[Rfam]
RNA: Glycine riboswitch aptamer
Organism: Bacillus benzoevorans
RNA sequence: CAACUCUGGAGAGCGCGUAUGAAUGUGGUACGCCACCAACGGGGAUGGGCUUCUAUAGAGCUAAACUCUCAGGUAAACAGACAGGGAUGGG
Numbered sequence: 001c002a003a004c005u006c007u008g009g010a011g012a013g014c015g016c017g018u019a020u021g022a023a024u025g026u027g028g029u030a031c032g033c034c035a036c037c038a039a040c041g042g043g044g045a046u047g048g049g050c051u052u053c054u055a056u057a058g059a060g061c062u063a064a065a066c067u068c069u070c071a072g073g074u075a076a077a078c079a080g081a082c083a084g085g086g087a088u089g090g091g
Base pairs, nucleotide, nucleotide: 001089002088004086005085006084007083008082015033016032017031018030019029020028035074036073037072039069042068043067044066049061050060051059052058